A member of the RNA family "Group II catalytic intron D1-D4-3" from Bacillus smithii, 163 nucleotides long. The pairing is the family consensus, mapped onto this sequence. A reference for the family is Bonen and Vogel (2001), "The ins and outs of group II introns", Trends Genet. The organism belongs to Bacillus smithii, within Bacteria.
RNA sequence: UCCGUGGUGACGCGGAAUCUGAAGGAAGCGGGCGGCAAACUUCCGAUCUGAUUCAUAGGAGGCUAGGUAUCACUGGGUGAGUUUGCACAACAAAACAAAGCCCUUUCUGCCGAAGGUGAUACAGAGUAAAUGAAGCAGAUGGAUGGAAGGAAAGAUUACACUC
Numbered sequence: 001u002c003c004g005u006g007g008u009g010a011c012g013c014g015g016a017a018u019c020u021g022a023a024g025g026a027a028g029c030g031g032g033c034g035g036c037a038a039a040c041u042u043c044c045g046a047u048c049u050g051a052u053u054c055a056u057a058g059g060a061g062g063c064u065a066g067g068u069a070u071c072a073c074u075g076g077g078u079g080a081g082u083u084u085g086c087a088c089a090a091c092a093a094a095a096c097a098a099a100g101c102c103c104u105u106u107c108u109g110c111c112g113a114a115g116g117u118g119a120u121a122c123a124g125a126g127u128a129a130a131u132g133a134a135g136c137a138g139a140u141g142g143a144u145g146g147a148a149g150g151a152a153a154g155a156u157u158a159c160a161c162u163c
Stems, first nucleotide, its partner, number of pairs: 001016006028163001030161001032159001036154001040149006046140005052134005062127003067122006075103004081096004